[Rfam]
RNA sequence: UUCGCCAAAUCACAGACUAAGAACGCCACAUUUGUGGCAACGUCUGUGUGACCCACAUCCUUUGGC
Numbered sequence: 001u002u003c004g005c006c007a008a009a010u011c012a013c014a015g016a017c018u019a020a021g022a023a024c025g026c027c028a029c030a031u032u033u034g035u036g037g038c039a040a041c042g043u044c045u046g047u048g049u050g051a052c053c054c055a056c057a058u059c060c061u062u063u064g065g066c
Stems, first nucleotide, its partner, number of pairs: 011048007025038005053065003
Bacillaceae-1 RNA: a 66-nucleotide sequence from Niallia endozanthoxylica. Pairs were carried over by alignment from the consensus structure, which is taken from published work. Rfam classes the family as a small RNA. A search with the family's covariance model found it, with a score of 44 bits.